Nucleotides: 384
Base pairs, nucleotide, nucleotide: 002071003070004069005068006067007066008065018057019056020055021054022053023052026049027048028047034045035044036043087347089345090344093229094228095227096226097225099223230342231341232340233339234338235337236336243329244328245327246326247325248324249323258312259311260310261309265305266304267303268302269301270282271281272280273279286298288296289295313322314321
Number, partner (000 for none) and nucleotide at each position: 001000u002071g003070g004069u005068u006067a007066a008065a009000a010000c011000u012000a013000c014000a015000c016000u017000c018057a019056a020055c021054g022053a023052u024000u025000u026049a027048a028047u029000u030000c031000g032000u033000u034045u035044c036043a037000u038000a039000c040000g041000c042000a043036u044035g045034a046000a047028a048027u049026u050000a051000u052023a053022u054021c055020g056019u057018u058000a059000u060000u061000u062000u063000a064000u065008u066007u067006u068005a069004a070003c071002c072000u073000a074000a075000a076000u077000a078000g079000a080000g081000a082000a083000u084000c085000g086000u087347g088000a089345c090344c091000c092000u093229u094228c095227g096226u097225u098000g099223c100000u101000u102000u103000u104000c105000g106000g107000c108000u109000g110000a111000a112000a113000c114000g115000u116000u117000u118000u119000u120000c121000c122000a123000u124000g125000g126000g127000c128000c129000a130000u131000c132000u133000u134000u135000u136000u137000u138000u139000c140000c141000u142000c143000c144000u145000g146000u147000a148000g149000u150000u151000c152000u153000u154000a155000a156000u157000u158000u159000u160000u161000u162000a163000a164000g165000g166000c167000u168000a169000u170000u171000g172000g173000a174000g175000g176000g177000g178000g179000g180000a181000u182000u183000u184000g185000a186000u187000g188000a189000g190000c191000u192000u193000u194000u195000u196000g197000g198000u199000u200000c201000a202000g203000c204000g205000c206000g207000u208000a209000g210000g211000u212000g213000g214000a215000g216000a217000a218000a219000c220000a221000a222000c223099g224000g225097a226096g227095u228094g229093g230342u231341u232340g233339u234338u235337u236336u237000g238000a239000u240000u241000u242000c243329c244328c245327c246326c247325u248324u249323c250000a251000u252000a253000u254000u255000c256000c257000c258312g259311g260310c261309a262000u263000u264000u265305u266304c267303a268302a269301c270282g271281c272280c273279c274000c275000c276000u277000c278000g279273g280272g281271g282270c283000a284000c285000c286298u287000u288296c289295u290000u291000g292000u293000u294000a295289a296288g297000u298286g299000a300000u301269g302268u303267u304266g305265a306000u307000u308000u309261u310260g311259c312258c313322g314321u315000a316000a317000c318000a319000a320000a321314a322313c323249g324248g325247a326246g327245g328244g329243g330000c331000a332000c333000a334000c335000a336236a337235a338234a339233a340232u341231a342230a343000u344090g345089g346000a347087c348000g349000c350000c351000c352000u353000u354000a355000u356000a357000a358000g359000c360000g361000u362000a363000a364000a365000a366000a367000a368000a369000a370000a371000a372000a373000a374000g375000g376000g377000u378000a379000u380000g381000a382000u383000g384000g
Overview:
Rfam assigns this 384-nucleotide RNA from Plasmodium knowlesi to the family "Plasmodium RNA of unkown function RUF1". NCBI's taxonomy places the organism under Eukaryota, Alveolata, Aconoidasida, Haemosporida, Plasmodium knowlesi. The literature on the family includes a 2007 paper in RNA by Chakrabarti et al., "Structural RNAs of known and unknown function identified in malaria parasites by comparative genomics and RNA analysis". A search with the family's covariance model found it, with a score of 131 bits. It is annotated as a small RNA.